[Rfam]
RNA sequence: AUGCCGCCACAACGGCUUCCUGGCGUGGCGGCGAGAACAUCAAUGGAGCG
Numbered sequence: 001a002u003g004c005c006g007c008c009a010c011a012a013c014g015g016c017u018u019c020c021u022g023g024c025g026u027g028g029c030g031g032c033g034a035g036a037a038c039a040u041c042a043a044u045g046g047a048g049c050g
Stems, first nucleotide, its partner, number of pairs: 004031007013022002015049003019046002